A member of the RNA family "Small nucleolar RNA U83B" from Geotrypetes seraphini, 93 nucleotides long.
Rfam describes the family as follows. U83B belongs to the C/D family of snoRNAs. U83B like U83A has no documented RNA target and they share the same host gene with the C/D box snoRNA U43 (RPL3).
A reference for the family is Duga et al. (2000), "The intron-containing L3 ribosomal protein gene (RPL3): sequence analysis and identification of U43 and of two novel intronic small nucleolar RNAs", Biochim Biophys Acta.
Rfam links the family to the GO terms nucleolus and RNA processing.
Rfam classes the family as a C/D-box small nucleolar RNA.
Pairs were carried over by alignment from the consensus structure.
A search with the family's covariance model found it, with a score of 92 bits.
RNA sequence: GCUGUUCUAUGAUGAUACCACGGAAUUUGCGCCUGGCACGGCGCCUGACAUAAAUGAUGAGUGAUUCCGUGCUGCCUUCCUUCUGAGAACAGC
Numbered sequence: 001g002c003u004g005u006u007c008u009a010u011g012a013u014g015a016u017a018c019c020a021c022g023g024a025a026u027u028u029g030c031g032c033c034u035g036g037c038a039c040g041g042c043g044c045c046u047g048a049c050a051u052a053a054a055u056g057a058u059g060a061g062u063g064a065u066u067c068c069g070u071g072c073u074g075c076c077u078u079c080c081u082u083c084u085g086a087g088a089a090c091a092g093c
Stems, first nucleotide, its partner, number of pairs: 001093005